[Rfam]
RNA sequence: GUCUAACCCUGAAUUCUGAGAGCUGUGGGUACUGUGCUUUCGUCUCCGCCCGCUGUUUUUCUCGCUGACUUCCAGCGGGCGGGAAAGUCCAGACCUGCAGCGGGCCAUCGCGCGUUUUCCACCACAAAAAAAUGUCAGCGCUGGGCUCAUGUGCCUGGAGCCUUGCGGCCGGCCGCCCAGCCCCGCACCCGCCUGAGGCCGCGGUCGGCCUGGAGUCCUCGGGCUCCGCUGCCGCCGCGAAGAGCUAGACUCUGUCAGCCGCGGGGCGUCAGGGGCUGGGGCGAGCCCCGGCAGCGCCGCAAGCAGAGAAACGGAGCUGGUCCCGUGAACGGUGACUUCCCUGAGUUGUGGGAAAUGCACCAGGAACUCGGUUCCCACAACC
Numbered sequence: 001g002u003c004u005a006a007c008c009c010u011g012a013a014u015u016c017u018g019a020g021a022g023c024u025g026u027g028g029g030u031a032c033u034g035u036g037c038u039u040u041c042g043u044c045u046c047c048g049c050c051c052g053c054u055g056u057u058u059u060u061c062u063c064g065c066u067g068a069c070u071u072c073c074a075g076c077g078g079g080c081g082g083g084a085a086a087g088u089c090c091a092g093a094c095c096u097g098c099a100g101c102g103g104g105c106c107a108u109c110g111c112g113c114g115u116u117u118u119c120c121a122c123c124a125c126a127a128a129a130a131a132a133u134g135u136c137a138g139c140g141c142u143g144g145g146c147u148c149a150u151g152u153g154c155c156u157g158g159a160g161c162c163u164u165g166c167g168g169c170c171g172g173c174c175g176c177c178c179a180g181c182c183c184c185g186c187a188c189c190c191g192c193c194u195g196a197g198g199c200c201g202c203g204g205u206c207g208g209c210c211u212g213g214a215g216u217c218c219u220c221g222g223g224c225u226c227c228g229c230u231g232c233c234g235c236c237g238c239g240a241a242g243a244g245c246u247a248g249a250c251u252c253u254g255u256c257a258g259c260c261g262c263g264g265g266g267c268g269u270c271a272g273g274g275g276c277u278g279g280g281g282c283g284a285g286c287c288c289c290g291g292c293a294g295c296g297c298c299g300c301a302a303g304c305a306g307a308g309a310a311a312c313g314g315a316g317c318u319g320g321u322c323c324c325g326u327g328a329a330c331g332g333u334g335a336c337u338u339c340c341c342u343g344a345g346u347u348g349u350g351g352g353a354a355a356u357g358c359a360c361c362a363g364g365a366a367c368u369c370g371g372u373u374c375c376c377a378c379a380a381c382c
Stems, first nucleotide, its partner, number of pairs: 036088005047081009064139006070132002162303007171288002174285001175282004179277006188265005200239005206234004212227003241253004314374005319368003323364002332360003338353004
Rfam assigns this 382-nucleotide RNA sequence to the family "Vertebrate telomerase RNA". Telomerase is a ribonucleoprotein reverse transcriptase that synthesises telomeric DNA. Telomerase RNAs differ greatly in sequence and structure between vertebrates, ciliates and yeasts, but they share a 5' pseudoknot structure close to the template sequence. The family's RNA type in Rfam is non-coding RNA gene. The family has 37 seed sequences and 523 matches in Rfam 15.1. It is one of the family's seed sequences.